[Rfam]
RNA sequence: UAGGAUAAAGGAGAUGGCAUUCUUCCUGUUACAAACCGCCAUAGUGGCUAAUGAUGCCUACGUGACC
Numbered sequence: 001u002a003g004g005a006u007a008a009a010g011g012a013g014a015u016g017g018c019a020u021u022c023u024u025c026c027u028g029u030u031a032c033a034a035a036c037c038g039c040c041a042u043a044g045u046g047g048c049u050a051a052u053g054a055u056g057c058c059u060a061c062g063u064g065a066c067c
Base pairs, nucleotide, nucleotide: 010025011024012023013022016058017057018056019055020054021053038048039047040046